RNA sequence: GUACUGUAUGGAGGUUAUGCCGCAGUGAUCCAGUACUGUAAUCCGAAGGAGAGCGACGACAGGAUUACAGACAGUGC
Numbered sequence: 001g002u003a004c005u006g007u008a009u010g011g012a013g014g015u016u017a018u019g020c021c022g023c024a025g026u027g028a029u030c031c032a033g034u035a036c037u038g039u040a041a042u043c044c045g046a047a048g049g050a051g052a053g054c055g056a057c058g059a060c061a062g063g064a065u066u067a068c069a070g071a072c073a074g075u076g077c
Base pairs, nucleotide, nucleotide: 001077002076003075004074005073006072009032010031011030012029037069038068039067040066041065042064043063044062
RNA: CyVA-1 RNA
Organism: Aphanothece hegewaldii